Source information
Rfam assigns this 77-nucleotide RNA from Alligator mississippiensis to the family "Mammalian CPEB3 ribozyme". The match comes from Rfam's covariance-model search (50 bits). Rfam describes the family as follows. The mammalian CPEB3 ribozyme is a self cleaving RNA located in the second intron of the CPEB3 gene which belongs to a family of genes regulating messenger RNA polyadenylation. This ribozyme is highly conserved and found only in mammals. The CPEB3 ribozyme is structurally and biochemically related to the human hepatitis delta virus (HDV) ribozyme and the HDV ribozyme is proposed to have arisen from the human transcriptome. There is currently only one other known self cleaving ribozyme in mammals, the CoTC motif.
RNA sequence: AGUCAAACCAUAAGGGCCACAGCAGAAGCACUCAUGUUGCUGCCCUGUCAAAUUCUAACAAGUCUGUGAAAUCUGCU
Numbered sequence: 001a002g003u004c005a006a007a008c009c010a011u012a013a014g015g016g017c018c019a020c021a022g023c024a025g026a027a028g029c030a031c032u033c034a035u036g037u038u039g040c041u042g043c044c045c046u047g048u049c050a051a052a053u054u055c056u057a058a059c060a061a062g063u064c065u066g067u068g069a070a071a072u073c074u075g076c077u
Base pairs, nucleotide, nucleotide: 014045015044016043017042021077022076023075024074025073026072028040029039030038049066050065052063053062054061